[Rfam]
RNA sequence: AAGUCACAAUCAACAUUCAUUACUGUCGGUGGGUUGUGAUAAAUGAAAAAAACUCACCGCCAGAUGAAUGCCACUGUGGCUAG
Dot-bracket structure: ..((((((.....((((((((...(.(((((.(((...............))).))))).).))))))))....))))).)..
Numbered sequence: 001a002a003g004u005c006a007c008a009a010u011c012a013a014c015a016u017u018c019a020u021u022a023c024u025g026u027c028g029g030u031g032g033g034u035u036g037u038g039a040u041a042a043a044u045g046a047a048a049a050a051a052a053c054u055c056a057c058c059g060c061c062a063g064a065u066g067a068a069u070g071c072c073a074c075u076g077u078g079g080c081u082a083g
Stems, first nucleotide, its partner, number of pairs: 003081001004079005014070008025061001027059005033053003